[Rfam]
RNA sequence: UAGAAUAAUGUAGAUAAGGGAAGUUAGCAAAAUAGAUCUGUAACUUUAGGAAAAGAAUUAGCUCUAAGAGUUAGGCACGUUAGGCCUUAGAGAGAAGCCUCUAGCGCAGAAGAGCACUAGCUGCAAAGUAGGCGCCUUUCAGCGCUAGGGUGCAGGCACUCUUAGCAGGCUUCAGCCGUCUAGCGUGCGUUUAAUAACUAACUUAGAACUAGUAUAAAUAAGAGGAAUCUAACUAUCUAAUUAAAACAUAGCAUUGUAAUAGCUAGAAAGUAGUAUUAACGCAAUAUAAUUUCUGCCUAGUGCUCUAAAUAUUAAAGCGAAGAGAUUCGACUAAGCGCAGGUAAAUAGUAGAAGUAACUAUAACUCUCUUAAGGUAGCUAAAUACCUUAUUAUCUAAUUAGUGACGCGCAUAAAUAGAUUAACGAGAUUUCUACUAUCCCUAUCUACUAUCUAGCGAAACUAUAGCUAAGGAAACAGGCUUAGCUAAA
Numbered sequence: 001u002a003g004a005a006u007a008a009u010g011u012a013g014a015u016a017a018g019g020g021a022a023g024u025u026a027g028c029a030a031a032a033u034a035g036a037u038c039u040g041u042a043a044c045u046u047u048a049g050g051a052a053a054a055g056a057a058u059u060a061g062c063u064c065u066a067a068g069a070g071u072u073a074g075g076c077a078c079g080u081u082a083g084g085c086c087u088u089a090g091a092g093a094g095a096a097g098c099c100u101c102u103a104g105c106g107c108a109g110a111a112g113a114g115c116a117c118u119a120g121c122u123g124c125a126a127a128g129u130a131g132g133c134g135c136c137u138u139u140c141a142g143c144g145c146u147a148g149g150g151u152g153c154a155g156g157c158a159c160u161c162u163u164a165g166c167a168g169g170c171u172u173c174a175g176c177c178g179u180c181u182a183g184c185g186u187g188c189g190u191u192u193a194a195u196a197a198c199u200a201a202c203u204u205a206g207a208a209c210u211a212g213u214a215u216a217a218a219u220a221a222g223a224g225g226a227a228u229c230u231a232a233c234u235a236u237c238u239a240a241u242u243a244a245a246a247c248a249u250a251g252c253a254u255u256g257u258a259a260u261a262g263c264u265a266g267a268a269a270g271u272a273g274u275a276u277u278a279a280c281g282c283a284a285u286a287u288a289a290u291u292u293c294u295g296c297c298u299a300g301u302g303c304u305c306u307a308a309a310u311a312u313u314a315a316a317g318c319g320a321a322g323a324g325a326u327u328c329g330a331c332u333a334a335g336c337g338c339a340g341g342u343a344a345a346u347a348g349u350a351g352a353a354g355u356a357a358c359u360a361u362a363a364c365u366c367u368c369u370u371a372a373g374g375u376a377g378c379u380a381a382a383u384a385c386c387u388u389a390u391u392a393u394c395u396a397a398u399u400a401g402u403g404a405c406g407c408g409c410a411u412a413a414a415u416a417g418a419u420u421a422a423c424g425a426g427a428u429u430u431c432u433a434c435u436a437u438c439c440c441u442a443u444c445u446a447c448u449a450u451c452u453a454g455c456g457a458a459a460c461u462a463u464a465g466c467u468a469a470g471g472a473a474a475c476a477g478g479c480u481u482a483g484c485u486a487a488a
Stems, first nucleotide, its partner, number of pairs: 001453004010447007018439003035059003039055001044049001060210002063207006211215001223432007230424001234248001236246001251287001253285005259277001262274004291418002295349002300346002302342002305340002310337001312335001318329004351367001353365003369373001390404004466483005

A member of the RNA family "Archaeal large subunit ribosomal RNA" from Paraphoma chrysanthemicola, 488 nucleotides of a longer RNA.
The match comes from Rfam's covariance-model search (841 bits).